This 188-nucleotide RNA from Schleiferilactobacillus perolens belongs to the Rfam family "Lysine riboswitch aptamer". Taxonomically the source falls in Schleiferilactobacillus perolens (Bacteria, Bacillati, Bacillota, Lactobacillaceae). The match comes from Rfam's covariance-model search (89 bits).
[Rfam]
RNA sequence: CGAAGAAAUAGAGGUUGCGGAUUCUAUGAGUGCUCUGGAGUAUGCGGAUACGCUGAAGGAGCAGGAGGAGAAACCGCCGAAAUGGGCAGUGUGCCGUGACACUGCGUGUUGGGGCCGUUGGGGAAUACCCGCGGAACUGUCUUAACCGAUUGGCUCACGCCGACUGAUUAAGGAGCGCUAUUCUGGUU
Number, nucleotide and partner (000 for none) at each position: 001c000002g000003a000004a000005g000006a000007a182008a181009u180010a179011g178012a000013g000014g000015u000016u000017g077018c076019g075020g074021a000022u072023u071024c070025u069026a000027u000028g000029a000030g000031u000032g062033c061034u060035c059036u058037g000038g000039a000040g000041u000042a000043u000044g000045c000046g000047g000048a000049u000050a000051c000052g000053c000054u000055g000056a000057a000058g036059g035060a034061g033062c032063a000064g000065g000066a000067g000068g000069a025070g024071a023072a022073a000074c020075c019076g018077c017078c000079g000080a000081a110082a109083u108084g107085g000086g105087c104088a103089g102090u101091g100092u099093g000094c000095c000096g000097u000098g000099a092100c091101a090102c089103u088104g087105c086106g000107u084108g083109u082110u081111g138112g137113g000114g000115c134116c133117g132118u131119u000120g129121g128122g000123g000124a000125a000126u000127a000128c121129c120130c000131g118132c117133g116134g115135a000136a000137c112138u111139g000140u173141c172142u171143u170144a169145a168146c000147c000148g000149a000150u000151u000152g000153g000154c000155u000156c000157a000158c000159g000160c000161c000162g000163a000164c000165u000166g000167a000168u145169u144170a143171a142172g141173g140174a000175g000176c000177g000178c011179u010180a009181u008182u007183c000184u000185g000186g000187u000188u000